The family of this 102-nucleotide RNA from Brevibacillus centrosporus is "Purine riboswitch aptamer".

[Rfam]
RNA sequence: AACAGGUAAUAUAAGAAGGUUCGUAUAUUCUUGGGAAUAUGGCUCAAGAGUUUCUACGAGGUCGCCAUAAAUGACCUGGCUACGAACAAAAUGUCAACGGGA
Numbered sequence: 001a002a003c004a005g006g007u008a009a010u011a012u013a014a015g016a017a018g019g020u021u022c023g024u025a026u027a028u029u030c031u032u033g034g035g036a037a038u039a040u041g042g043c044u045c046a047a048g049a050g051u052u053u054c055u056a057c058g059a060g061g062u063c064g065c066c067a068u069a070a071a072u073g074a075c076c077u078g079g080c081u082a083c084g085a086a087c088a089a090a091a092u093g094u095c096a097a098c099g100g101g102a
Stems, first nucleotide, its partner, number of pairs: 019087007029049007059077006
NCBI's taxonomy places the organism under Bacteria, Bacillati, Caryophanales, Paenibacillaceae, Brevibacillus. Rfam links the family to the GO term purine nucleobase biosynthetic process.